RNA sequence: ACCCUCUGGUUCCCUUUUCUAUUGAAUCUGAACACUGGUCUUGGUGGUUGUAAAAAGAAGGAAAGUGAUAUUGAUGCUGGCCUCACAGCAUUGCAGUCUGGCAUAUAGUUGGAGGGCUGGUUUCAAAUAGGA
Number, nucleotide and partner (000 for none) at each position: 001a000002c000003c060004c000005u058006c057007u056008g000009g000010u000011u000012c000013c000014c000015u000016u000017u000018u000019c047020u046021a045022u044023u043024g000025a000026a039027u038028c037029u000030g000031a000032a000033c000034a000035c000036u000037g028038g027039u026040c000041u000042u000043g023044g022045u021046g020047g019048u000049u000050g000051u000052a000053a000054a000055a000056a007057g006058a005059a000060g003061g000062a000063a000064a000065g000066u000067g000068a000069u000070a000071u000072u000073g000074a000075u000076g000077c120078u119079g118080g117081c116082c115083u114084c000085a000086c000087a000088g000089c000090a000091u000092u000093g109094c108095a000096g000097u000098c000099u000100g000101g000102c000103a000104u000105a000106u000107a000108g094109u093110u000111g000112g000113a000114g083115g082116g081117c080118u079119g078120g077121u000122u000123u000124c000125a000126a000127a000128u000129a000130g000131g000132a000
RNA: Small nucleolar RNA SNORA61
Organism: Castor canadensis